RNA sequence: UGGCGCCCAACGUGGGGCACCUUGUACGGAGGAUUGAGUGACCGAACCAUCCGAGAGAGCCCGCAAGAAAGAACGUAAAAGAGGCCCGCGCCGGCCGCAGGUGCCUGCUGCGACAUCGGAACCUCGGUAAGCGGGUGGCACCCCUUCCCCUUCCCUUCGGCAAUGGGACAGGCAUUAAGCGAACAUGAGAUAUUUGUUGAAAGCUUGAGUAAAGCUUUAAAGGCGCGAGGAGUUAAGGUUAAAAUUAAGGAUUUGUGUCAAUAUUUGAAUAUAUUAAACAAGUUU
Numbered sequence: 001u002g003g004c005g006c007c008c009a010a011c012g013u014g015g016g017g018c019a020c021c022u023u024g025u026a027c028g029g030a031g032g033a034u035u036g037a038g039u040g041a042c043c044g045a046a047c048c049a050u051c052c053g054a055g056a057g058a059g060c061c062c063g064c065a066a067g068a069a070a071g072a073a074c075g076u077a078a079a080a081g082a083g084g085c086c087c088g089c090g091c092c093g094g095c096c097g098c099a100g101g102u103g104c105c106u107g108c109u110g111c112g113a114c115a116u117c118g119g120a121a122c123c124u125c126g127g128u129a130a131g132c133g134g135g136u137g138g139c140a141c142c143c144c145u146u147c148c149c150c151u152u153c154c155c156u157u158c159g160g161c162a163a164u165g166g167g168a169c170a171g172g173c174a175u176u177a178a179g180c181g182a183a184c185a186u187g188a189g190a191u192a193u194u195u196g197u198u199g200a201a202a203g204c205u206u207g208a209g210u211a212a213a214g215c216u217u218u219a220a221a222g223g224c225g226c227g228a229g230g231a232g233u234u235a236a237g238g239u240u241a242a243a244a245u246u247a248a249g250g251a252u253u254u255g256u257g258u259c260a261a262u263a264u265u266u267g268a269a270u271a272u273a274u275u276a277a278a279c280a281a282g283u284u285u
Base pairs, nucleotide, nucleotide: 006032007031012027013026014025038050039049040048084128085127086126088123091119092118093117096112097111098110099109100108136171138169141167142166143165176219177218178217179215180214226267227266228265229264232262233261236254237253238252239251240250
RNA: Mason-Pfizer monkey virus packaging signal
Organism: Octodon degus